[Rfam]
RNA sequence: GGAAGUAGGUCUUCCGCAAUCGACAUACAGGUGUAGAUUGCAAAACACCCAUAGGUGCUGUAGUCAAAAGCUAUGGUAUUGAGCGUAUGAGGAAAAGGCAGUAAAGAAACUGUCAGU
Numbered sequence: 001g002g003a004a005g006u007a008g009g010u011c012u013u014c015c016g017c018a019a020u021c022g023a024c025a026u027a028c029a030g031g032u033g034u035a036g037a038u039u040g041c042a043a044a045a046c047a048c049c050c051a052u053a054g055g056u057g058c059u060g061u062a063g064u065c066a067a068a069a070g071c072u073a074u075g076g077u078a079u080u081g082a083g084c085g086u087a088u089g090a091g092g093a094a095a096a097g098g099c100a101g102u103a104a105a106g107a108a109a110c111u112g113u114c115a116g117u
Stems, first nucleotide, its partner, number of pairs: 001015005016041006023034004045117002048092002050089004054080002057077003061073004097114006
A member of the RNA family "Group II catalytic intron D1-D4-2" from Bacillus sp. B1-b2, 117 nucleotides long. Rfam's curators write: Group II introns are found in rRNA, tRNA and mRNA of organelles in fungi, plants and protists, and also in mRNA in bacteria. A reference for the family is Chu et al. (2001), "Control of branch-site choice by a group II intron", EMBO J.